[Rfam]
RNA sequence: UUCACAAGCAUUGCACCCAGGGUCUGGAACCCCAGACAUUGUACCUGGAGCUUUACUGUUUCAAUUAAAGAUGAUG
Number, nucleotide and partner (000 for none) at each position: 001u000002u000003c000004a000005c000006a053007a052008g051009c050010a000011u000012u000013g000014c000015a000016c000017c048018c047019a046020g045021g000022g037023u036024c035025u034026g033027g000028a000029a000030c000031c000032c000033c026034a025035g024036a023037c022038a000039u000040u000041g000042u000043a000044c000045c020046u019047g018048g017049a000050g009051c008052u007053u006054u000055a000056c000057u000058g000059u000060u000061u000062c000063a000064a000065u000066u000067a000068a000069a000070g000071a000072u000073g000074a000075u000076g000